[Rfam]
RNA sequence: UAGCCCAUCGGGGCAUCGGAUACCUGCUGAUU
Numbered sequence: 001u002a003g004c005c006c007a008u009c010g011g012g013g014c015a016u017c018g019g020a021u022a023c024c025u026g027c028u029g030a031u032u
Stems, first nucleotide, its partner, number of pairs: 003014004017026003
RNA: XIST RNA A repeat
Organism: Nomascus leucogenys